Shown here is a 73-nucleotide RNA sequence from Pontibacter diazotrophicus, a member of the family "Fluoride riboswitch aptamer (crcB RNA motif)". The family's consensus secondary structure is taken from published work. Lineage of the source: Bacteria > Pseudomonadati > Bacteroidota > Hymenobacteraceae > Pontibacter. A reference for the family is Ren et al. (2012), "Fluoride ion encapsulation by Mg2+ ions and phosphates in a fluoride riboswitch", Nature.
RNA sequence: UAGCCUUAAGGUGAUGGGGUACCACCUUGAACCGCCUGCGCCCGCAGCACAGGCUGAUGACUCCUACAGAUUG
Dot-bracket structure: .........[[[[..(((((..]]]].......((((.............)))).....))))).........